RNA sequence: GCCGAGCUUGGUAAUUUGAGCUUAUAACCCAUAUGGGGGCAACAAAGUGGUUGGAUGUUGGCUCCAGCCCAUUGUUAGGGUUGUUGUUUGAGUUGUUCUUUGGCUUGGCCAUUCCAAGUAGGGAGUUGGGCUAUGGGUUUUGGGCGAAGGCCUAGUGUCCAUGGCACUUAGGGUUGAAGAAAACCGUGUGAGGUUGGUUUCACAGAGCAGCGUAACCUUCCAUACAGUGAAGAAGGAAGAGAAACCAGGCAGUAUCGAUGGGUUUGUUCUAGCAUACUUAGGGUGCACCCAUGCGCACUUACAAUUUA
Numbered sequence: 001g002c003c004g005a006g007c008u009u010g011g012u013a014a015u016u017u018g019a020g021c022u023u024a025u026a027a028c029c030c031a032u033a034u035g036g037g038g039g040c041a042a043c044a045a046a047g048u049g050g051u052u053g054g055a056u057g058u059u060g061g062c063u064c065c066a067g068c069c070c071a072u073u074g075u076u077a078g079g080g081u082u083g084u085u086g087u088u089u090g091a092g093u094u095g096u097u098c099u100u101u102g103g104c105u106u107g108g109c110c111a112u113u114c115c116a117a118g119u120a121g122g123g124a125g126u127u128g129g130g131c132u133a134u135g136g137g138u139u140u141u142g143g144g145c146g147a148a149g150g151c152c153u154a155g156u157g158u159c160c161a162u163g164g165c166a167c168u169u170a171g172g173g174u175u176g177a178a179g180a181a182a183a184c185c186g187u188g189u190g191a192g193g194u195u196g197g198u199u200u201c202a203c204a205g206a207g208c209a210g211c212g213u214a215a216c217c218u219u220c221c222a223u224a225c226a227g228u229g230a231a232g233a234a235g236g237a238a239g240a241g242a243a244a245c246c247a248g249g250c251a252g253u254a255u256c257g258a259u260g261g262g263u264u265u266g267u268u269c270u271a272g273c274a275u276a277c278u279u280a281g282g283g284u285g286c287a288c289c290c291a292u293g294c295g296c297a298c299u300u301a302c303a304a305u306u307u308a
Stems, first nucleotide, its partner, number of pairs: 001040003004023008028037003044307003048303002053298001056295002059291003063287001065285002068283003075276001077270005083264001086259001088258003092255002101252001103250006109236002112234003115229002118225003122221004128167001130165009140155006168173001186213004194205003
This 308-nucleotide sequence from Cucurbita maxima belongs to the Rfam family "Plant signal recognition particle RNA". A search with the family's covariance model found it, with a score of 107 bits. It is annotated as a non-coding RNA gene. Gene Ontology terms of the family: SRP-dependent cotranslational protein targeting to membrane, signal sequence recognition and signal recognition particle, endoplasmic reticulum targeting. For this family Rfam cites "Crystal structure of the ribonucleoprotein core of the signal recognition particle" (Batey et al., Science, 2000).